[Rfam]
RNA: Eukaryotic large subunit ribosomal RNA, nucleotides 706 to 993
RNA sequence: GAGUCUAACAUAAAUGCAAGUAUAAGGGUGAUAAACCCUAAUGCGAAAUGAAAGUAAUUUCAGGUAGGAACCCCUAAAAAGGUGCACUAUCAACCGAACCUCAUGGAUUUGUUCAUAGGAUUUGAGUAAGAGCAUUUAUGUUGGUACCCGAAAGAUGGUGAACUAUGCCUGAAUAGGGUGAAGCCAGAGGAAACUCUGGUGGAAGCUCGUAGCGAUUCUGACGUGCAAAUCGAUCGUCGAAUUUGGGUAUAGGGGCGAAAGACUAAUCGAACCAUCUAGUAGCUGGUU
Number, nucleotide and partner (000 for none) at each position: 001g000002a000003g000004u000005c144006u143007a142008a141009c140010a139011u138012a137013a136014a135015u134016g133017c132018a000019a000020g044021u043022a042023u000024a000025a039026g038027g037028g036029u035030g000031a000032u000033a000034a000035a029036c028037c027038c026039u025040a000041a000042u022043g021044c020045g000046a000047a000048a055049u054050g000051a000052a000053a000054g049055u048056a000057a000058u000059u000060u000061c000062a000063g091064g090065u089066a088067g087068g000069a000070a083071c082072c081073c000074c000075u000076a000077a000078a000079a000080a000081g072082g071083u070084g000085c000086a000087c067088u066089a065090u064091c063092a000093a127094c126095c124096g123097a122098a121099c000100c119101u000102c000103a000104u115105g114106g113107a112108u000109u000110u000111g000112u107113u106114c105115a104116u000117a000118g000119g100120a000121u098122u097123u096124g095125a000126g094127u093128a000129a000130g000131a000132g017133c016134a015135u014136u013137u012138a011139u010140g009141u008142u007143g006144g005145u000146a000147c286148c285149c000150g283151a000152a000153a000154g276155a275156u274157g273158g272159u271160g000161a000162a000163c252164u251165a250166u249167g248168c247169c246170u245171g244172a243173a242174u240175a000176g208177g207178g206179u205180g000181a000182a000183g200184c199185c198186a197187g196188a195189g194190g000191a000192a000193a000194c189195u188196c187197u186198g185199g184200u183201g000202g000203a000204a000205g179206c178207u177208c176209g000210u000211a000212g237213c236214g235215a234216u000217u233218c232219u000220g231221a230222c000223g000224u000225g000226c000227a000228a000229a000230u221231c220232g218233a217234u215235c214236g213237u212238c000239g000240a174241a000242u173243u172244u171245g170246g169247g168248u167249a166250u165251a164252g163253g000254g264255g263256c000257g000258a000259a000260a000261g000262a000263c255264u254265a000266a000267u000268c000269g000270a000271a159272c158273c157274a156275u155276c154277u000278a000279g000280u000281a000282g000283c150284u000285g148286g147287u000288u000